[Rfam]
RNA sequence: AAAUGAGAUUCGGGGUGCCUGAAGGCUGAGAUUAAUACCCGCUGUACCUGAUCAACGUUAUGGUUGCGUAGGAAAAUCUAAAGAGACGGUA
Numbered sequence: 001a002a003a004u005g006a007g008a009u010u011c012g013g014g015g016u017g018c019c020u021g022a023a024g025g026c027u028g029a030g031a032u033u034a035a036u037a038c039c040c041g042c043u044g045u046a047c048c049u050g051a052u053c054a055a056c057g058u059u060a061u062g063g064u065u066g067c068g069u070a071g072g073a074a075a076a077u078c079u080a081a082a083g084a085g086a087c088g089g090u091a
Stems, first nucleotide, its partner, number of pairs: 006079005011041004016035001017026003047072004053066004
RNA: TPP riboswitch aptamer (THI element)
Organism: Aerococcus christensenii